A member of the RNA family "Vertebrate telomerase RNA" from Gallus gallus, 466 nucleotides long.
For this family Rfam cites "Secondary structure of vertebrate telomerase RNA" (Chen et al., Cell, 2000).
Gene Ontology terms of the family: telomere maintenance via telomerase, telomerase catalytic core complex and telomerase activity.
Rfam describes the family as follows. Telomerase is a ribonucleoprotein reverse transcriptase that synthesises telomeric DNA. Telomerase RNAs differ greatly in sequence and structure between vertebrates, ciliates and yeasts, but they share a 5' pseudoknot structure close to the template sequence. Vertebrate telomerase RNAs have a 3' H/ACA snoRNA-like domain.
A search with the family's covariance model found it, with a score of 131 bits.

[Rfam]
RNA sequence: ACGCGUGGCGGGUGGAAGGCUCCGCUGUGCCUAACCCUAAUCGGGGGAAUUGAUGGUGCUGUCGCCGCGCUCCCUCCGCCCGCCCGCUGUUUUACUCGCUGACUUUCAGCGGGCGAGAGGAGCCGCCCCGGGGGGGAGGCGGGCGGCGGGAGGGGGCCGGGGCGCCGCGGCGGUGGGGGUCGGGGGGGGGAGAGAAAGGGCCGAAAGGGGCUCCGCGGCCAAAAAAAACGUCAGCGAGGGGUCCGCUCGCCCCGAUCCGCCCUGGGGUCCCCGCUCGCGUGGCCGCGGUCGGCCGGCACCCGCCAUUGCCGCCGCGAAGAGUUCGCCUCUGUCAGCCUCGGCGGCGCGCGGGAGGUGCGGCGCGCGGCCCCGCGCCCCCAGCAGAGCAAACGGGAGCGGCGCCCCCGGGGUAACCCCCGCGCUCCCCUGCGCCGUGGGGCGCGCGGACGGCGUCGCUCCCACACGC
Numbered sequence: 001a002c003g004c005g006u007g008g009c010g011g012g013u014g015g016a017a018g019g020c021u022c023c024g025c026u027g028u029g030c031c032u033a034a035c036c037c038u039a040a041u042c043g044g045g046g047g048a049a050u051u052g053a054u055g056g057u058g059c060u061g062u063c064g065c066c067g068c069g070c071u072c073c074c075u076c077c078g079c080c081c082g083c084c085c086g087c088u089g090u091u092u093u094a095c096u097c098g099c100u101g102a103c104u105u106u107c108a109g110c111g112g113g114c115g116a117g118a119g120g121a122g123c124c125g126c127c128c129c130g131g132g133g134g135g136g137a138g139g140c141g142g143g144c145g146g147c148g149g150g151a152g153g154g155g156g157c158c159g160g161g162g163c164g165c166c167g168c169g170g171c172g173g174u175g176g177g178g179g180u181c182g183g184g185g186g187g188g189g190g191a192g193a194g195a196a197a198g199g200g201c202c203g204a205a206a207g208g209g210g211c212u213c214c215g216c217g218g219c220c221a222a223a224a225a226a227a228a229c230g231u232c233a234g235c236g237a238g239g240g241g242u243c244c245g246c247u248c249g250c251c252c253c254g255a256u257c258c259g260c261c262c263u264g265g266g267g268u269c270c271c272c273g274c275u276c277g278c279g280u281g282g283c284c285g286c287g288g289u290c291g292g293c294c295g296g297c298a299c300c301c302g303c304c305a306u307u308g309c310c311g312c313c314g315c316g317a318a319g320a321g322u323u324c325g326c327c328u329c330u331g332u333c334a335g336c337c338u339c340g341g342c343g344g345c346g347c348g349c350g351g352g353a354g355g356u357g358c359g360g361c362g363c364g365c366g367g368c369c370c371c372g373c374g375c376c377c378c379c380a381g382c383a384g385a386g387c388a389a390a391c392g393g394g395a396g397c398g399g400c401g402c403c404c405c406c407g408g409g410g411u412a413a414c415c416c417c418c419g420c421g422c423u424c425c426c427c428u429g430c431g432c433c434g435u436g437g438g439g440c441g442c443g444c445g446g447a448c449g450g451c452g453u454c455g456c457u458c459c460c461a462c463a464c465g466c
Stems, first nucleotide, its partner, number of pairs: 004254002007251008018243005069123005081115009098235006104228003262381006270350001272348003278340002284316005290311004295304003318330004394458010417446005424439004